Rfam assigns this 62-nucleotide RNA from Mytilus coruscus to the family "Selenocysteine insertion sequence 1".
Gene Ontology term of the family: selenocysteine incorporation.
On this family, see Walczak et al., RNA 1996: "A novel RNA structural motif in the selenocysteine insertion element of eukaryotic selenoprotein mRNAs".
Nucleotides: 062
Stems, first nucleotide, its partner, number of pairs: 003060003016049010030038003
Number, partner (000 for none) and nucleotide at each position: 001000c002000u003060g004059a005058c006000u007000u008000u009000u010000c011000a012000u013000g014000a015000c016049g017048u018047u019046a020045a021044a022043a023042u024041a025040c026000u027000a028000a029000a030038u031037c032036c033000c034000u035000g036032g037031g038030a039000u040025g041024u042023g043022u044021u045020u046019u047018a048017g049016u050000u051000g052000a053000u054000u055000u056000u057000a058005g059004u060003c061000u062000c